[Rfam]
A member of the RNA family "Bacterial large subunit ribosomal RNA" from Conexibacter woesei, 381 nucleotides of a longer RNA.
RNA sequence: GAAAGAGGAGUGAGAAUCUCCUCCACCGAUUGCCCAAGGAUUCCUGAGUAAAGUUCGUCUGCUCAGGGUUAGUCGGGACCUAAGGCGAGGCCGAAAGGCGUAGUCGAUGGCUAACAGGUUGAUAUUCCUGUACCACGUCGUGUUUGCUUGACCGAUGGGGGGACGGGGAAGGCUACGGGAACCCAGGCGAUGGUCGUCCUGGGGUAAGCAUGUAGGGGUGGGCCUAGUGAAAUGCGGGCCUGCAUAACCUGAGGUGCGAUGCCAGCUGGCUUUGAGCCGGCGAGUCCCUUACGCCAUGCCUCCGAGAAAAGCCUCUAGGGAGAACACGCGUGCCCGUACCAAAACCGACACAGGUGGGCAAGUAGAGAAUACUAAGGUGAU
Numbered sequence: 001g002a003a004a005g006a007g008g009a010g011u012g013a014g015a016a017u018c019u020c021c022u023c024c025a026c027c028g029a030u031u032g033c034c035c036a037a038g039g040a041u042u043c044c045u046g047a048g049u050a051a052a053g054u055u056c057g058u059c060u061g062c063u064c065a066g067g068g069u070u071a072g073u074c075g076g077g078a079c080c081u082a083a084g085g086c087g088a089g090g091c092c093g094a095a096a097g098g099c100g101u102a103g104u105c106g107a108u109g110g111c112u113a114a115c116a117g118g119u120u121g122a123u124a125u126u127c128c129u130g131u132a133c134c135a136c137g138u139c140g141u142g143u144u145u146g147c148u149u150g151a152c153c154g155a156u157g158g159g160g161g162g163a164c165g166g167g168g169a170a171g172g173c174u175a176c177g178g179g180a181a182c183c184c185a186g187g188c189g190a191u192g193g194u195c196g197u198c199c200u201g202g203g204g205u206a207a208g209c210a211u212g213u214a215g216g217g218g219u220g221g222g223c224c225u226a227g228u229g230a231a232a233u234g235c236g237g238g239c240c241u242g243c244a245u246a247a248c249c250u251g252a253g254g255u256g257c258g259a260u261g262c263c264a265g266c267u268g269g270c271u272u273u274g275a276g277c278c279g280g281c282g283a284g285u286c287c288c289u290u291a292c293g294c295c296a297u298g299c300c301u302c303c304g305a306g307a308a309a310a311g312c313c314u315c316u317a318g319g320g321a322g323a324a325c326a327c328g329c330g331u332g333c334c335c336g337u338a339c340c341a342a343a344a345c346c347g348a349c350a351c352a353g354g355u356g357g358g359c360a361a362g363u364a365g366a367g368a369a370u371a372c373u374a375a376g377g378u379g380a381u
Base pairs, nucleotide, nucleotide: 005023006022007021008020009019010018024379025378026377027376032359033358034357035356038340039339043067044066045065046064047063048062052060053059074336075335076334077333079110080109084105085104086103088101090099091098092097114131115130116129117128118127134332135331136330137329139328140327141326142325143324144323152319153318157315158314159313160312165302166301167300168299171295172294173293177288178287179286180285182203183202184201185200186199187198204262205261208257209256210255211254215250216249217248219242220241221240222239223238224237225236227235228234265281266280267279268278269277270276345354346353361373362372363371364370
The source organism's lineage runs through Bacteria, Bacillati, Thermoleophilia, Solirubrobacterales and Conexibacter woesei. The family's consensus secondary structure is taken from published work.